This 125-nucleotide RNA belongs to the Rfam family "RtT RNA". The match comes from Rfam's covariance-model search (66 bits). The family has 57 seed sequences and 651 matches in Rfam 15.1. From the family's description: This family represents a bacterial cis-regulatory element known as RtT RNA. The exact function of RtT is unknown although it is thought that it may be involved in changing the cellular response in relation to amino acid starvation.
RNA sequence: GAGUUCACCGAGUCGUGCGGGUGAGAUCCUGCGCUCAGGUUCGAGCAUCGCGUAGCGAUACGACAACGCGCAGCGUUGCCCGCAGGGUGAGGCCACAGGCCGAAUCAAUCCUGCACGACCCACCA
Numbered sequence: 001g002a003g004u005u006c007a008c009c010g011a012g013u014c015g016u017g018c019g020g021g022u023g024a025g026a027u028c029c030u031g032c033g034c035u036c037a038g039g040u041u042c043g044a045g046c047a048u049c050g051c052g053u054a055g056c057g058a059u060a061c062g063a064c065a066a067c068g069c070g071c072a073g074c075g076u077u078g079c080c081c082g083c084a085g086g087g088u089g090a091g092g093c094c095a096c097a098g099g100c101c102g103a104a105u106c107a108a109u110c111c112u113g114c115a116c117g118a119c120c121c122a123c124c125a
Base pairs, nucleotide, nucleotide: 015116016115017114018113019112020111021110022108032089033088035087036086040084042082043081064078065077066076067075068074069073